Small Cajal body specific RNA 8: a 132-nucleotide RNA from Scyliorhinus torazame. It scores 110 bits against the family's covariance model. Rfam describes the family as follows. scaRNAs are a specific class of small nuclear RNAs which localise to the Cajal bodies and guide the modification of RNA polymerase II transcribed spliceosomal RNAs U1, U2, U4, U5 and U12. U92 belong to the H/ACA box class of guide RNAs as it has the predicted hairpin-hinge-hairpin-tail structure, conserved H/ACA-box motifs and is found associated with GAR1. Its family is annotated with nucleolus, RNA processing and Cajal body in the Gene Ontology. NCBI's taxonomy places the organism under Eukaryota, Opisthokonta, Deuterostomia, Chondrichthyes, Scyliorhinus. Rfam classes the family as a small Cajal body RNA.

[Rfam]
RNA sequence: UGGGAGGUUGAUACACAACUAGAGUCAAAUCCACUCUUGUUGCCACUAAUAUCUCCCUAGAAUAAAAUUAGCCUUUUGAUGACCGAGCCGACUUGAGAGAAAUCGGAGCGGACAGAUACGGGGCGAACAAAU
Numbered sequence: 001u002g003g004g005a006g007g008u009u010g011a012u013a014c015a016c017a018a019c020u021a022g023a024g025u026c027a028a029a030u031c032c033a034c035u036c037u038u039g040u041u042g043c044c045a046c047u048a049a050u051a052u053c054u055c056c057c058u059a060g061a062a063u064a065a066a067a068u069u070a071g072c073c074u075u076u077u078g079a080u081g082a083c084c085g086a087g088c089c090g091a092c093u094u095g096a097g098a099g100a101a102a103u104c105g106g107a108g109c110g111g112a113c114a115g116a117u118a119c120g121g122g123g124c125g126a127a128c129a130a131a132u
Base pairs, nucleotide, nucleotide: 002057003056004055005054006053007052016042017041018040022036023035024034025033069126071124072123073122074121075120083111084110085109088106089105090104091103